[Rfam]
This 80-nucleotide RNA from Medicago truncatula belongs to the Rfam family "MIR5269 microRNA precursor family". The match comes from Rfam's covariance-model search (61 bits). The family has 2 seed sequences and 389 matches in Rfam 15.1. The organism belongs to Medicago, within Eukaryota.
RNA sequence: UUGGAUAAAAUCAAUGUGAAUCUCAUACUUUAGAAAUUGAUCUCACAUAGAGUAGUAGAGUCCAUAUUGAUUUCAUCUAA
Numbered sequence: 001u002u003g004g005a006u007a008a009a010a011u012c013a014a015u016g017u018g019a020a021u022c023u024c025a026u027a028c029u030u031u032a033g034a035a036a037u038u039g040a041u042c043u044c045a046c047a048u049a050g051a052g053u054a055g056u057a058g059a060g061u062c063c064a065u066a067u068u069g070a071u072u073u074c075a076u077c078u079a080a
Stems, first nucleotide, its partner, number of pairs: 001080006008073011023058001025056001026054007